[Rfam]
RNA sequence: GCAGCAGGCUGCAAUUGCAGUGCUUCCUUCUGUGGGAGUCCUGCCAUUUUCCUGCUGAGAGCAACUCUGUUAACGCUGACUGUGGUUUCAUCUGUGCAGUGGUGGAACUGUUGGUUAACAUGUACAUGC
Numbered sequence: 001g002c003a004g005c006a007g008g009c010u011g012c013a014a015u016u017g018c019a020g021u022g023c024u025u026c027c028u029u030c031u032g033u034g035g036g037a038g039u040c041c042u043g044c045c046a047u048u049u050u051c052c053u054g055c056u057g058a059g060a061g062c063a064a065c066u067c068u069g070u071u072a073a074c075g076c077u078g079a080c081u082g083u084g085g086u087u088u089c090a091u092c093u094g095u096g097c098a099g100u101g102g103u104g105g106a107a108c109u110g111u112u113g114g115u116u117a118a119c120a121u122g123u124a125c126a127u128g129c
Stems, first nucleotide, its partner, number of pairs: 003056006018043003022039005066122001068120007083110010